The family of this 60-nucleotide RNA from Crocodylus porosus is "Ma3 gene ribosomal frameshift signal". A search with the family's covariance model found it, with a score of 37 bits. The family has 12 seed sequences and 565 matches in Rfam 15.1. Lineage of the source: Eukaryota > Vertebrata > Teleostomi > Crocodylidae > Crocodylus. The base pairs follow the family's consensus structure, which is taken from published work. On this family, see Wills et al., J Biol Chem 2006: "A functional -1 ribosomal frameshift signal in the human paraneoplastic Ma3 gene".

RNA sequence: GGGAAACGGUGUCAAGACCUGGGGAAGGAGCUGACCCAAGUCUCAGCUUCCCCAGGCUCU
Numbered sequence: 001g002g003g004a005a006a007c008g009g010u011g012u013c014a015a016g017a018c019c020u021g022g023g024g025a026a027g028g029a030g031c032u033g034a035c036c037c038a039a040g041u042c043u044c045a046g047c048u049u050c051c052c053c054a055g056g057c058u059c060u
Base pairs, nucleotide, nucleotide: 015043016042017041018040020038021037022036023035028059029058030057031056032055